[Rfam]
RNA: DUF3800-V RNA
RNA sequence: AAAAGACGGGUAAAUCCUGAUACGUGCCUGAGGUGCUCCCUUCCAUCGGUUGGCUAAGAGCCUCGGGAACAUCGGCGUAGCAGGGGCCGUCUUUU
Numbered sequence: 001a002a003a004a005g006a007c008g009g010g011u012a013a014a015u016c017c018u019g020a021u022a023c024g025u026g027c028c029u030g031a032g033g034u035g036c037u038c039c040c041u042u043c044c045a046u047c048g049g050u051u052g053g054c055u056a057a058g059a060g061c062c063u064c065g066g067g068a069a070c071a072u073c074g075g076c077g078u079a080g081c082a083g084g085g086g087c088c089g090u091c092u093u094u095u
Base pairs, nucleotide, nucleotide: 001095002094003093004092005091006090007089008088021079022078023077024076025075028066029065030064031063032062033061034060039053040052043049044048